[Rfam]
This 56-nucleotide sequence from Centaurea solstitialis belongs to the Rfam family "Plastid-psbA-3 3UTR RNA".
RNA sequence: AGAGGAGCAAUAAGCCGUCUUGAUAAAAUAAGAGGGAAGUUAUUGCUCCUUUUUUA
Numbered sequence: 001a002g003a004g005g006a007g008c009a010a011u012a013a014g015c016c017g018u019c020u021u022g023a024u025a026a027a028a029u030a031a032g033a034g035g036g037a038a039g040u041u042a043u044u045g046c047u048c049c050u051u052u053u054u055u056a
Base pairs, nucleotide, nucleotide: 001052002051003050004049005048006047007046008045009044010043011042012041013040018033019032020031021030022029
Clan: Plastid-psbA 3UTR RNA clan. Plastid psbA-3 is a non-coding RNA (ncRNA) present in plastids. It was identified in inverted repeat sequences in the 3 prime untranslate region (3UTR) of photosystem II quinone-binding protein (psbA). The organism belongs to Centaurea, within Eukaryota. On this family, see Richter et al., Plant Commun 2023: "Retrograde signaling in plants: A critical review focusing on the GUN pathway and beyond".